[Rfam]
RNA sequence: UCUUCCUGCCGUGUGACUGGCGUUUCCUCCCUAAACUCGGGCCGCACCUUGGUGCGGCCCUUUUUUUGUAUCGCG
Numbered sequence: 001u002c003u004u005c006c007u008g009c010c011g012u013g014u015g016a017c018u019g020g021c022g023u024u025u026c027c028u029c030c031c032u033a034a035a036c037u038c039g040g041g042c043c044g045c046a047c048c049u050u051g052g053u054g055c056g057g058c059c060c061u062u063u064u065u066u067u068g069u070a071u072c073g074c075g
Base pairs, nucleotide, nucleotide: 008021009020010019039060040059041058042057043056044055045054046053047052
This 75-nucleotide RNA from Acetobacteraceae bacterium AT-5844 belongs to the Rfam family "Makes More Granules Regulator RNA (mmgR)". From the family's description: SuhB later renamed mmgR (makes more granules regulator) was a putative non-coding RNA found multiple times in the Agrobacterium tumefaciens genome and related alpha-proteobacteria. Other non-coding RNAs uncovered in the same analysis include: speF, ybhL, metA, and serC.Several studies inSinorhizobium meliloti showed that suhB element is indeed a non-coding RNA:firstly it was detected on Northern blot and called Sm8RNA, secondly in an RNAseq study referred to as SmelC689.The mutant phenotype's (strain lacking the small RNA) cytoplasm contains higher content of polyhydroxybutyrate (PBH)storage granules than wild type strain. A reference for the family is Corbino et al. (2005), "Evidence for a second class of S-adenosylmethionine riboswitches and other regulatory RNA motifs in alpha-proteobacteria", Genome Biol.